[Rfam]
RNA sequence: GCGUGGGUCGGCCCAUGGCAUAUGAGCCAUGUGGCUGGGGGACACCGUCGCCUCAUUCCCCGCGGGCGGCGGAACGGUCCGGGAGGUGAACCGCACCUCCCGGACUGUG
Numbered sequence: 001g002c003g004u005g006g007g008u009c010g011g012c013c014c015a016u017g018g019c020a021u022a023u024g025a026g027c028c029a030u031g032u033g034g035c036u037g038g039g040g041g042a043c044a045c046c047g048u049c050g051c052c053u054c055a056u057u058c059c060c061c062g063c064g065g066g067c068g069g070c071g072g073a074a075c076g077g078u079c080c081g082g083g084a085g086g087u088g089a090a091c092c093g094c095a096c097c098u099c100c101c102g103g104a105c106u107g108u109g
Base pairs, nucleotide, nucleotide: 001108002107006075008073009037010036011035012034013033014031015030016029017028018027038043045072046071047070048069049068050067051066052065053064076106077105078104079103080102081101082100083099084098085097086096087095088094
The family of this 109-nucleotide sequence from Streptomyces palmae is "Streptomyces RNA 4115". Identified by deep sequencing of transcriptome at the end of exponential growth phase. Lineage of the source: Bacteria > Actinomycetota > Kitasatosporales > Streptomycetaceae > Streptomyces. It is annotated as a small RNA. The literature on the family includes a 2011 paper in RNA Biol by Vockenhuber et al., "Deep sequencing-based identification of small non-coding RNAs in Streptomyces coelicolor".